[Rfam]
RNA sequence: CUGUCCCUUGUUUCAACAGUGUUUGGAUGGAGCGG
Numbered sequence: 001c002u003g004u005c006c007c008u009u010g011u012u013u014c015a016a017c018a019g020u021g022u023u024u025g026g027a028u029g030g031a032g033c034g035g
Base pairs, nucleotide, nucleotide: 001035002034003033004032007030008029010028012027013026014025015024016023017021
RNA: Iron response element I
Organism: Canis lupus